[Rfam]
RNA sequence: AAAGGCGGUGCGUAACUUUGCCUCCUUGAAAGGAGGUGAAGAGGAAAGUCCAUGCUUGCAUAGUCUGAAAUGACUAUAGUGUUUGUGUAAGUAUAUAAAAAAUAAAACUUAACAACUGGAAAAACUAGUUGAUGGCGGAAAAAAGUUCUACGUAAACUAAAAAUUUAUAUGAAUAAUUCUCCCUAAAGUGCCACAGAGACGAGCUUUGCAGAAAUGCAAAUUAUGAAACGCGGUAAACCCCUCAAGCAAGAAACCUAAAAAUUGGUAAGGGAAUUCAGACAAAGGAAAAAAACGGAGUCUAAAAAUAUAAGUUUUUUCUUAUAUUAGAUUAAUUACUCACGUCUAACUAUCUCAUUUUUAAAAGAUGUUAGAUACAGAACAUGGCUUAUAGUC
Numbered sequence: 001a002a003a004g005g006c007g008g009u010g011c012g013u014a015a016c017u018u019u020g021c022c023u024c025c026u027u028g029a030a031a032g033g034a035g036g037u038g039a040a041g042a043g044g045a046a047a048g049u050c051c052a053u054g055c056u057u058g059c060a061u062a063g064u065c066u067g068a069a070a071u072g073a074c075u076a077u078a079g080u081g082u083u084u085g086u087g088u089a090a091g092u093a094u095a096u097a098a099a100a101a102a103u104a105a106a107a108c109u110u111a112a113c114a115a116c117u118g119g120a121a122a123a124a125c126u127a128g129u130u131g132a133u134g135g136c137g138g139a140a141a142a143a144a145g146u147u148c149u150a151c152g153u154a155a156a157c158u159a160a161a162a163a164u165u166u167a168u169a170u171g172a173a174u175a176a177u178u179c180u181c182c183c184u185a186a187a188g189u190g191c192c193a194c195a196g197a198g199a200c201g202a203g204c205u206u207u208g209c210a211g212a213a214a215u216g217c218a219a220a221u222u223a224u225g226a227a228a229c230g231c232g233g234u235a236a237a238c239c240c241c242u243c244a245a246g247c248a249a250g251a252a253a254c255c256u257a258a259a260a261a262u263u264g265g266u267a268a269g270g271g272a273a274u275u276c277a278g279a280c281a282a283a284g285g286a287a288a289a290a291a292a293c294g295g296a297g298u299c300u301a302a303a304a305a306u307a308u309a310a311g312u313u314u315u316u317u318c319u320u321a322u323a324u325u326a327g328a329u330u331a332a333u334u335a336c337u338c339a340c341g342u343c344u345a346a347c348u349a350u351c352u353c354a355u356u357u358u359u360a361a362a363a364g365a366u367g368u369u370a371g372a373u374a375c376a377g378a379a380c381a382u383g384g385c386u387u388a389u390a391g392u393c
Stems, first nucleotide, its partner, number of pairs: 004393003007389001008340003012336003016041009046387003050384005055250005060077006083245003087241001088111005112133001113131006134240002137182003145174004152168005188238002190234003205220006254270003274303002277300004304325008342372006349366003